[Rfam]
Nucleotides: 250
Stems, first nucleotide, its partner, number of pairs: 001089007010031001012028002017022001032078004092236003097114005118230011133167002137161001139159006145246001149242004169212009181203002184200005
Number, partner (000 for none) and nucleotide at each position: 001089g002088u003087g004086a005085a006084c007083u008000a009000c010031c011000a012028c013027u014000g015000a016000g017022c018000u019000g020000a021000a022017g023000a024000c025000u026000c027013a028012g029000u030000g031010g032078c033077u034076u035075c036000u037000u038000g039000g040000g041000g042000a043000g044000u045000c046000a047000c048000u049000g050000a051000g052000u053000a054000c055000c056000a057000g058000a059000u060000u061000c062000u063000g064000u065000a066000g067000c068000u069000u070000c071000u072000u073000c074000g075035g076034a077033a078032g079000c080000c081000u082000a083007a084006g085005u086004u087003c088002a089001c090000c091000a092236g093235a094234c095000u096000c097114g098113u099112u100111u101110c102000c103000a104000g105000a106000a107000a108000u109000g110101g111100g112099a113098a114097c115000a116000u117000c118230g119229u120228u121227u122226g123225a124224g125223a126222g127221g128220u129000u130000a131000c132000g133167a134166u135000a136000c137161c138000u139159g140158c141157g142156g143155u144154u145246g146000a147000c148000g149242c150241a151240u152239c153000a154144g155143a156142c157141c158140g159139c160000u161137g162000c163000u164000c165000u166134a167133u168000c169212g170211c171210c172209u173208g174207u175206a176205g177204u178000u179000a180000a181203g182202u183000a184200g185199a186198a187197u188196c189000g190000a191000g192000g193000c194000a195000a196188g197187g198186u199185u200184c201000g202182g203181u204177g205176c206175u207174a208173c209172a210171g211170g212169c213000g214000c215000a216000a217000a218000a219000a220128g221127c222126c223125u224124u225123u226122u227121g228120a229119a230118c231000a232000c233000u234094g235093u236092c237000g238000a239152g240151a241150u242149g243000a244000a245000g246145c247000c248000g249000g250000a

HNH endonuclease-associated RNA and ORF (HEARO) RNA: a 250-nucleotide sequence from Ktedonobacteria bacterium brp13. The organism belongs to Ktedonobacteria, within Bacteria. The family's RNA type in Rfam is non-coding RNA gene. For this family Rfam cites "Exceptional structured noncoding RNAs revealed by bacterial metagenome analysis" (Weinberg et al., Nature, 2009).